The family of this 187-nucleotide RNA from Wenzhouxiangella limi is "6S / SsrS RNA". Taxonomically the source falls in Wenzhouxiangella (Bacteria, Pseudomonadati, Gammaproteobacteria, Wenzhouxiangellaceae). About the family: E. coli 6S RNA was the first non coding RNA to be sequenced, but its function was unknown until recently. It consists of 184 nucleotides that fold into an extended hairpin structure with a large single-stranded internal bulge. The 6S RNA specifically associates with RNA polymerase holoenzyme containing the sigma70 specificity factor. Pairs were carried over by alignment from the consensus structure, which is taken from published work. The family's RNA type in Rfam is non-coding RNA gene.
[Rfam]
RNA sequence: CGCUCUCUGCGGUGUUCGCCAGCAGGAAAGUAAUAUGCCUUGUCCCUACUUAUCGACCUAGGGAUGGCGGCUUCCGGUACUUGUGUGCAGCUUGUUUCAACGCGAGUUGCCUGAUGGUCCGGAGAGCCAACCCACCUGAACCAUUGGUUCAAGGUCACCGACCUGCAGCGGCACAGGUGGAGAGCGC
Numbered sequence: 001c002g003c004u005c006u007c008u009g010c011g012g013u014g015u016u017c018g019c020c021a022g023c024a025g026g027a028a029a030g031u032a033a034u035a036u037g038c039c040u041u042g043u044c045c046c047u048a049c050u051u052a053u054c055g056a057c058c059u060a061g062g063g064a065u066g067g068c069g070g071c072u073u074c075c076g077g078u079a080c081u082u083g084u085g086u087g088c089a090g091c092u093u094g095u096u097u098c099a100a101c102g103c104g105a106g107u108u109g110c111c112u113g114a115u116g117g118u119c120c121g122g123a124g125a126g127c128c129a130a131c132c133c134a135c136c137u138g139a140a141c142c143a144u145u146g147g148u149u150c151a152a153g154g155u156c157a158c159c160g161a162c163c164u165g166c167a168g169c170g171g172c173a174c175a176g177g178u179g180g181a182g183a184g185c186g187c
Stems, first nucleotide, its partner, number of pairs: 002185009012174004017170003037155003041151002045147002061133003065129004072123001075122001077120001079118003087110002091106005